[Rfam]
RNA sequence: AGGUAAUGUCUACUGCACCUUUAUCACUGUAGGCACUCGGUUACGCUGUGGGUCUUGAUCGGACCUUAGACAUGAUUGUCGAGGGUGUAAUGUGAGGAUGGGUUGAAUGCCCU
Number, nucleotide and partner (000 for none) at each position: 001a020002g019003g018004u017005a000006a000007u035008g034009u033010c032011u031012a030013c029014u000015g000016c000017a004018c003019c002020u001021u000022u000023a000024u000025c000026a000027c000028u000029g013030u012031a011032g010033g009034c008035a007036c096037u095038c094039g093040g091041u090042u089043a088044c087045g086046c085047u084048g000049u000050g066051g065052g064053u063054c062055u061056u000057g000058a000059u000060c000061g055062g054063a053064c052065c051066u050067u000068a000069g080070a079071c078072a077073u000074g000075a000076u000077u072078g071079u070080c069081g000082a000083g000084g047085g046086u045087g044088u043089a042090a041091u040092g000093u039094g038095a037096g036097g000098a000099u000100g112101g111102g110103u109104u000105g000106a000107a000108u000109g103110c102111c101112c100113u000